[Rfam]
RNA sequence: GGCUCAAAUCUGAAGUAGGGUAGAUUGGUAAGGUCAGCUGAUACUACUGUUUUAGUGUACUUCAAAAUGGGGCCC
Numbered sequence: 001g002g003c004u005c006a007a008a009u010c011u012g013a014a015g016u017a018g019g020g021u022a023g024a025u026u027g028g029u030a031a032g033g034u035c036a037g038c039u040g041a042u043a044c045u046a047c048u049g050u051u052u053u054a055g056u057g058u059a060c061u062u063c064a065a066a067a068u069g070g071g072g073c074c075c
Stems, first nucleotide, its partner, number of pairs: 001074005007068001009066001011064007019056001021054003026049005033042003
Dot-bracket structure: (((((.(.(.(((((((.(.(((..(((((..(((....)))..)))))..))).).))))))).).).))))).

The family of this 75-nucleotide sequence from Haemonchus placei is "mir-5928 microRNA precursor family". Taxonomically the source falls in Haemonchus (Eukaryota, Nematoda, Rhabditina, Rhabditomorpha). Rfam links the family to the GO terms RISC complex and miRNA-mediated post-transcriptional gene silencing. The family has 5 seed sequences and 1,672 matches in Rfam 15.1. Pairs were carried over by alignment from the consensus structure, which was predicted with RNAalifold. A search with the family's covariance model found it, with a score of 61 bits.